[Rfam]
RNA sequence: GCGGACCUCCGGGGCCGCUUAACCGAGGGUUCGAGAGAGCCCCCACAGCAACGGAAGACAGCAA
Numbered sequence: 001g002c003g004g005a006c007c008u009c010c011g012g013g014g015c016c017g018c019u020u021a022a023c024c025g026a027g028g029g030u031u032c033g034a035g036a037g038a039g040c041c042c043c044c045a046c047a048g049c050a051a052c053g054g055a056a057g058a059c060a061g062c063a064a
Stems, first nucleotide, its partner, number of pairs: 001018004006014003027042006
RNA: L2-Alphaproteobacteria ribosomal protein leader